[Rfam]
RNA sequence: UAGCCUGUUGUCAAUGAUGGAUUCUUGUUGAAGCUGAUUAUAACUGAUUUGAGUUAACAUUUCGUCACUACCACUGAGACAACAGACGC
Numbered sequence: 001u002a003g004c005c006u007g008u009u010g011u012c013a014a015u016g017a018u019g020g021a022u023u024c025u026u027g028u029u030g031a032a033g034c035u036g037a038u039u040a041u042a043a044c045u046g047a048u049u050u051g052a053g054u055u056a057a058c059a060u061u062u063c064g065u066c067a068c069u070a071c072c073a074c075u076g077a078g079a080c081a082a083c084a085g086a087c088g089c
Stems, first nucleotide, its partner, number of pairs: 003087001005085008
Background: A member of the RNA family "Small nucleolar RNA SNORD70" from Eolophus roseicapilla, 89 nucleotides long. Gene Ontology terms of the family: RNA processing and nucleolus. Pairs were carried over by alignment from the consensus structure. By type it is a C/D-box small nucleolar RNA. NCBI's taxonomy places the organism under Eukaryota, Gnathostomata, Dinosauria, Theropoda, Eolophus. Rfam describes the family as follows. snoRNA HBII-234 belongs to the C/D family of snoRNAs. It is the human orthologue of the mouse MBII-234 and is predicted to guide 2'O-ribose methylation of the small 18S rRNA on position A512. The literature on the family includes a 2001 paper in EMBO J by Huttenhofer et al., "RNomics: an experimental approach that identifies 201 candidates for novel, small, non-messenger RNAs in mouse".